Shown here is a 101-nucleotide sequence from Paenibacillus validus, a member of the family "Purine riboswitch aptamer". NCBI's taxonomy places the organism under Bacteria, Bacillati, Bacillota, Caryophanales, Paenibacillus.

[Rfam]
RNA sequence: AAUUGAAGAGAAUAACCGUUUCGUAUAAUCCCGGGAAUCGGCCCGGGAGUUUCUACGAGGUCACCGUAAAUGAUCUGGCUACGAACAAGAAAGCACGUGUU
Numbered sequence: 001a002a003u004u005g006a007a008g009a010g011a012a013u014a015a016c017c018g019u020u021u022c023g024u025a026u027a028a029u030c031c032c033g034g035g036a037a038u039c040g041g042c043c044c045g046g047g048a049g050u051u052u053c054u055a056c057g058a059g060g061u062c063a064c065c066g067u068a069a070a071u072g073a074u075c076u077g078g079c080u081a082c083g084a085a086c087a088a089g090a091a092a093g094c095a096c097g098u099g100u101u
Stems, first nucleotide, its partner, number of pairs: 020085006029048007058076006